[Rfam]
RNA sequence: AGGACACAGGCGGAGCGGAAGGCAACGUGCGCCACGCAGCCUAAUCACCGCCCCUAUAGUCC
Numbered sequence: 001a002g003g004a005c006a007c008a009g010g011c012g013g014a015g016c017g018g019a020a021g022g023c024a025a026c027g028u029g030c031g032c033c034a035c036g037c038a039g040c041c042u043a044a045u046c047a048c049c050g051c052c053c054c055u056a057u058a059g060u061c062c
Base pairs, nucleotide, nucleotide: 002062003061004060005059009055010054012053013052015051016050017049018048021046022045027040028038029037030036031035